[Rfam]
Record summary
5' ureB small RNA: a 287-nucleotide RNA from Arthrobacter sp. FB24. The family has 13 seed sequences and 4,812 matches in Rfam 15.1. Pairs were carried over by alignment from the consensus structure, which was predicted with mfold. The literature on the family includes a 2013 paper in J Bacteriol by Wen et al., "Helicobacter pylori 5'ureB-sRNA, a cis-encoded antisense small RNA, negatively regulates ureAB expression by transcription termination". Taxonomically the source falls in Arthrobacter (Bacteria, Bacillati, Actinomycetes, Micrococcales).
RNA sequence: CGGUGGGCACCUGGUCCGGGGAGAUGAAGUGGAUGUGCGUGUCCACGCCGCCGGCGGUGAGGAUCUUCCGUUCCCCGGCGAUGAUUUCGGUACUGGCGCCUAUCACGAUGUCCACGCCGUCGGUGAUCUGCGGGUUGCCGGCUUUGCCGAUCUUGAUGAUGUGGCCGUCCCUGAUCGCGACGUCCGCCUUGUAGAUGCCCGUGUAGUCGAGGAUGACGGCGUUGGUGAUGACGGUGUCCGGCACAUCUUCAUCCCGCGUCACCUGGCCGUUCUGGCCCAUGCCGUCG
Numbered sequence: 001c002g003g004u005g006g007g008c009a010c011c012u013g014g015u016c017c018g019g020g021g022a023g024a025u026g027a028a029g030u031g032g033a034u035g036u037g038c039g040u041g042u043c044c045a046c047g048c049c050g051c052c053g054g055c056g057g058u059g060a061g062g063a064u065c066u067u068c069c070g071u072u073c074c075c076c077g078g079c080g081a082u083g084a085u086u087u088c089g090g091u092a093c094u095g096g097c098g099c100c101u102a103u104c105a106c107g108a109u110g111u112c113c114a115c116g117c118c119g120u121c122g123g124u125g126a127u128c129u130g131c132g133g134g135u136u137g138c139c140g141g142c143u144u145u146g147c148c149g150a151u152c153u154u155g156a157u158g159a160u161g162u163g164g165c166c167g168u169c170c171c172u173g174a175u176c177g178c179g180a181c182g183u184c185c186g187c188c189u190u191g192u193a194g195a196u197g198c199c200c201g202u203g204u205a206g207u208c209g210a211g212g213a214u215g216a217c218g219g220c221g222u223u224g225g226u227g228a229u230g231a232c233g234g235u236g237u238c239c240g241g242c243a244c245a246u247c248u249u250c251a252u253c254c255c256g257c258g259u260c261a262c263c264u265g266g267c268c269g270u271u272c273u274g275g276c277c278c279a280u281g282c283c284g285u286c287g
Stems, first nucleotide, its partner, number of pairs: 001287003006283004012158002015155001018076006030053003034050002037048004057069001059067001077148002081144001083142001085140001090138003094134001097130002104125002106122004110117001164271001166269002170266002173263001175261001177259002185221004190216001200209002223256003230249002234244003